[Rfam]
RNA sequence: AUGCGUGUAGGGUGGAGAUGCACAACCGUCGGACUGCGUAGCACCUGGCUUUAUGAAGACGCUCAACGCGUCCGCUACCGACGGCUGAUUCCUCCUCCUGACUGAGUGCUUCAGCUAGCACAAUCAACAGGAGACGUCCGUCGCGACCCCGGCCCCACUGGCCGACGUCGUUUGACAGAGGAACGACUGACAACCGUUUCUGACGCACACCUGACACCGACCCUGAAAGUCGUGUGUGCCGAACGCCGUUUCCGGCAGCCCGGAAACCGA
Numbered sequence: 001a002u003g004c005g006u007g008u009a010g011g012g013u014g015g016a017g018a019u020g021c022a023c024a025a026c027c028g029u030c031g032g033a034c035u036g037c038g039u040a041g042c043a044c045c046u047g048g049c050u051u052u053a054u055g056a057a058g059a060c061g062c063u064c065a066a067c068g069c070g071u072c073c074g075c076u077a078c079c080g081a082c083g084g085c086u087g088a089u090u091c092c093u094c095c096u097c098c099u100g101a102c103u104g105a106g107u108g109c110u111u112c113a114g115c116u117a118g119c120a121c122a123a124u125c126a127a128c129a130g131g132a133g134a135c136g137u138c139c140g141u142c143g144c145g146a147c148c149c150c151g152g153c154c155c156c157a158c159u160g161g162c163c164g165a166c167g168u169c170g171u172u173u174g175a176c177a178g179a180g181g182a183a184c185g186a187c188u189g190a191c192a193a194c195c196g197u198u199u200c201u202g203a204c205g206c207a208c209a210c211c212u213g214a215c216a217c218c219g220a221c222c223c224u225g226a227a228a229g230u231c232g233u234g235u236g237u238g239c240c241g242a243a244c245g246c247c248g249u250u251u252c253c254g255g256c257a258g259c260c261c262g263g264a265a266a267c268c269g270a
Stems, first nucleotide, its partner, number of pairs: 014095004023087002026084007036075003040050003058072004096132005135205004140176003143171004150164005180200006214237004218232004248267007
Shown here is a 270-nucleotide RNA from Pseudomonas cavernae, a member of the family "rne-II RNA".
Pairs were carried over by alignment from the consensus structure, which is taken from published work.
It scores 236 bits against the family's covariance model.
The family's RNA type in Rfam is cis-regulatory element.